[Rfam]
The record is a 210-nucleotide RNA sequence from Paracoccus lutimaris, which matches "permuted transfer-messenger RNA" in Rfam. Rfam classes the family as a non-coding RNA gene.
RNA sequence: GGACAUAAACGGCAGUUUUACUAGCUGGACUGGACUCGGCUGCGAAGCCGACACCUCCACCAAAUUCCCUUCGUUGGGGGCCUAUGGGGGUGAAACAGGAUCGACAGACUGUGAACGAGCUGAUCUUUGUCCCGGUGAGCUACCACCGUUAUCGGUGCAAAAUGUACAGUUGCCAACGACAACCGUGCUCCGGUCGCGCUGGCUGCGUAA
Numbered sequence: 001g002g003a004c005a006u007a008a009a010c011g012g013c014a015g016u017u018u019u020a021c022u023a024g025c026u027g028g029a030c031u032g033g034a035c036u037c038g039g040c041u042g043c044g045a046a047g048c049c050g051a052c053a054c055c056u057c058c059a060c061c062a063a064a065u066u067c068c069c070u071u072c073g074u075u076g077g078g079g080g081c082c083u084a085u086g087g088g089g090g091u092g093a094a095a096c097a098g099g100a101u102c103g104a105c106a107g108a109c110u111g112u113g114a115a116c117g118a119g120c121u122g123a124u125c126u127u128u129g130u131c132c133c134g135g136u137g138a139g140c141u142a143c144c145a146c147c148g149u150u151a152u153c154g155g156u157g158c159a160a161a162a163u164g165u166a167c168a169g170u171u172g173c174c175a176a177c178g179a180c181a182a183c184c185g186u187g188c189u190c191c192g193g194u195c196g197c198g199c200u201g202g203c204u205g206c207g208u209a210a
Stems, first nucleotide, its partner, number of pairs: 001132005014121004027109001030107003036051005052092007133148004

It scores 131 bits against the family's covariance model. On this family, see Williams and Bartel, RNA 1996: "Phylogenetic analysis of tmRNA secondary structure".